[Rfam]
RNA sequence: CCAUAAACAUCAGGGGUCACAGCAGAAGUAUCCACAUUGUGAUCUCUGUCAGGUAAUACCUGGUAAUACCUGAAGAUUCUGCU
Numbered sequence: 001c002c003a004u005a006a007a008c009a010u011c012a013g014g015g016g017u018c019a020c021a022g023c024a025g026a027a028g029u030a031u032c033c034a035c036a037u038u039g040u041g042a043u044c045u046c047u048g049u050c051a052g053g054u055a056a057u058a059c060c061u062g063g064u065a066a067u068a069c070c071u072g073a074a075g076a077u078u079c080u081g082c083u
Base pairs, nucleotide, nucleotide: 013046014045015044016043017042018041021083022082023081024080025079026078027077028040029039030038050072051071052070053069054068055067
The record is an 83-nucleotide RNA from Alligator sinensis, which matches "Mammalian CPEB3 ribozyme" in Rfam. A reference for the family is Salehi-Ashtiani et al. (2006), "A genomewide search for ribozymes reveals an HDV-like sequence in the human CPEB3 gene", Science. Lineage of the source: Eukaryota > Gnathostomata > Sarcopterygii > Alligatoridae > Alligator. It scores 43 bits against the family's covariance model.